PyrR binding site: a 121-nucleotide sequence from Leuconostoc lactis. The source organism's lineage runs through Bacteria, Bacillati, Bacilli, Lactobacillaceae and Leuconostoc. Rfam classes the family as a cis-regulatory element. It scores 55 bits against the family's covariance model. About the family: This family represents the PyrR binding site and terminator structure. This RNA structure is found upstream of a variety of genes involved in pyrimidine biosynthesis and transport. The alignment also includes a portion of the antiterminator structure.

RNA sequence: AAAACCUUUAAUUAAGUCCAGAGAGACUUGCAAGGCAUUUAGAUACUCGGGGUCGUAGUCUAUACUAUUGACCGUAAUUUUCUAGAACCGCGUAAGUCUGCCGACUUACGCGGUUUUUGUA
Numbered sequence: 001a002a003a004a005c006c007u008u009u010a011a012u013u014a015a016g017u018c019c020a021g022a023g024a025g026a027c028u029u030g031c032a033a034g035g036c037a038u039u040u041a042g043a044u045a046c047u048c049g050g051g052g053u054c055g056u057a058g059u060c061u062a063u064a065c066u067a068u069u070g071a072c073c074g075u076a077a078u079u080u081u082c083u084a085g086a087a088c089c090g091c092g093u094a095a096g097u098c099u100g101c102c103g104a105c106u107u108a109c110g111c112g113g114u115u116u117u118u119g120u121a
Stems, first nucleotide, its partner, number of pairs: 005035004013030006042082002045079001047077001049075001051073005085116014

Pairs were carried over by alignment from the consensus structure, which is taken from published work.